[Rfam]
RNA: Bacterial large subunit ribosomal RNA, nucleotides 627 to 856
RNA sequence: GAGUUACGGUGUGUAGCAAGGUUAAGCCGUCGCAGGUGUAGCCGUAGGGAAACCGAGUCUGAAUAGGGCGAUUAGUUGCAUGUCGUAGACCCGAAACGGGAUGAGCUUGCCAUGAGCAGGUUGAAGCGGAGGUAAUACUUCGUGGAGGACCGAACCCAUAUAGGUUGAAAACUGUUGGGAUGACUUGUGGUAAGGGGUGAAAGGCCAAUCAAAUUCCGUGAUAGCUGGUU
Numbered sequence: 001g002a003g004u005u006a007c008g009g010u011g012u013g014u015a016g017c018a019a020g021g022u023u024a025a026g027c028c029g030u031c032g033c034a035g036g037u038g039u040a041g042c043c044g045u046a047g048g049g050a051a052a053c054c055g056a057g058u059c060u061g062a063a064u065a066g067g068g069c070g071a072u073u074a075g076u077u078g079c080a081u082g083u084c085g086u087a088g089a090c091c092c093g094a095a096a097c098g099g100g101a102u103g104a105g106c107u108u109g110c111c112a113u114g115a116g117c118a119g120g121u122u123g124a125a126g127c128g129g130a131g132g133u134a135a136u137a138c139u140u141c142g143u144g145g146a147g148g149a150c151c152g153a154a155c156c157c158a159u160a161u162a163g164g165u166u167g168a169a170a171a172c173u174g175u176u177g178g179g180a181u182g183a184c185u186u187g188u189g190g191u192a193a194g195g196g197g198u199g200a201a202a203g204g205c206c207a208a209u210c211a212a213a214u215u216c217c218g219u220g221a222u223a224g225c226u227g228g229u230u
Stems, first nucleotide, its partner, number of pairs: 005087013020043004026037003047054002057069004090228002093225001097218006106194011117182001119151004126143006155179003160175004196206003